Shown here is a 117-nucleotide RNA sequence from Allochromatium vinosum, a member of the family "ALIL pseudoknot".
RNA sequence: AGCGUAUUUUGCCCAGGCGGAGCUCGACCGCCCCUUGAAGCAAUGAAGGCCUUCAUCGACGACCAUCGCGAGGCCUACGGGGUCGAGCCGAUCUGCAAGGUGCUGCCGAUCGCCCCA
Numbered sequence: 001a002g003c004g005u006a007u008u009u010u011g012c013c014c015a016g017g018c019g020g021a022g023c024u025c026g027a028c029c030g031c032c033c034c035u036u037g038a039a040g041c042a043a044u045g046a047a048g049g050c051c052u053u054c055a056u057c058g059a060c061g062a063c064c065a066u067c068g069c070g071a072g073g074c075c076u077a078c079g080g081g082g083u084c085g086a087g088c089c090g091a092u093c094u095g096c097a098a099g100g101u102g103c104u105g106c107c108g109a110u111c112g113c114c115c116c117a
Stems, first nucleotide, its partner, number of pairs: 016032005079116004089112002092109002095106003
The family has 26 seed sequences and 2,146 matches in Rfam 15.1. Pairs were carried over by alignment from the consensus structure, which is taken from published work. The source organism's lineage runs through Bacteria, Pseudomonadota, Gammaproteobacteria, Allochromatium and Allochromatium vinosum.